[Rfam]
RNA: GlmZ RNA activator of glmS mRNA
Nucleotides: 224
Stems, first nucleotide, its partner, number of pairs: 001071002004069002006066006015053002017050001024047001077156007087136004099125006168187005193219011
Number, partner (000 for none) and nucleotide at each position: 001071g002070u003000g004069g005068c006066u007065c008064a009063u010062u011061c012000a013000c014000c015053u016052g017050g018000u019000u020000a021000u022000g023000a024047c025000a026000g027000c028000c029000c030000u031000g032000c033000g034000c035000a036000a037000g038000c039000g040000g041000a042000c043000a044000a045000g046000u047024g048000c049000c050017c051000a052016u053015a054000a055000c056000a057000u058000c059000c060000a061011g062010a063009a064008u065007g066006a067000c068005g069004c070002a071001c072000a073000a074000u075000a076000c077156g078155g079154u080153g081152c082151c083150u084000g085000u086000c087136g088135u089134c090133c091000a092000c093000c094000u095000c096000a097000c098000c099125g100124a101123u102122a103121a104120u105000c106000g107000u108000u109000c110000a111000c112000u113000c114000u115000g116000u117000g118000a119000c120104g121103u122102u123101a124100u125099c126000a127000a128000a129000c130000a131000u132000c133090g134089g135088a136087c137000g138000c139000a140000a141000c142000g143000u144000u145000g146000a147000g148000u149000u150083a151082g152081g153080c154079a155078c156077c157000a158000c159000c160000u161000a162000u163000u164000c165000a166000g167000u168187u169186a170185c171184g172183c173000g174000g175000g176000u177000u178000c179000u180000c181000c182000g183172g184171c185170g186169u187168a188000a189000c190000a191000u192000a193219a194218a195217u196216g197215g198214c199213c200212g201211g202210u203209u204000c205000a206000u207000u208000g209203a210202a211201c212200c213199g214198g215197c216196c217195a218194u219193u220000u221000u222000c223000a224000u